[Rfam]
RNA sequence: UCGGGAGAGCAGACUGGUGGUCGAAACCACGACCUGAGCCUGCGCUCCUGCCCAGC
Numbered sequence: 001u002c003g004g005g006a007g008a009g010c011a012g013a014c015u016g017g018u019g020g021u022c023g024a025a026a027c028c029a030c031g032a033c034c035u036g037a038g039c040c041u042g043c044g045c046u047c048c049u050g051c052c053c054a055g056c
Base pairs, nucleotide, nucleotide: 002050003049004048005047006046007045009043010042011041012040014038015037017035019034020033021032022031